[Rfam]
RNA sequence: CUUAGGUACCAAUUUGGCCACAAUGGGUUAGAACACUAUUCCACUGUGUUCUUACCCACCAUGGCCAAUAUUGGGCCUAAG
Numbered sequence: 001c002u003u004a005g006g007u008a009c010c011a012a013u014u015u016g017g018c019c020a021c022a023a024u025g026g027g028u029u030a031g032a033a034c035a036c037u038a039u040u041c042c043a044c045u046g047u048g049u050u051c052u053u054a055c056c057c058a059c060c061a062u063g064g065c066c067a068a069u070a071u072u073g074g075g076c077c078u079a080a081g
Stems, first nucleotide, its partner, number of pairs: 001081007009074005014068007024058005030052007